Rfam assigns this 85-nucleotide RNA sequence from Medicago truncatula to the family "MIR2617 microRNA precursor family". The source organism's lineage runs through Eukaryota, Tracheophyta, Mesangiospermae, Fabaceae and Medicago.
[Rfam]
RNA sequence: AUGACGUGUAACAUGCCCGUUGUGGAACUACUCUGAUGAAUAUUUGUAAUAUAAUUGUUUUUGGGUAACGGGGUGUUACAUGUAG
Dot-bracket structure: .(.(((((((((((.((((((.............................................))))))))))))))))).)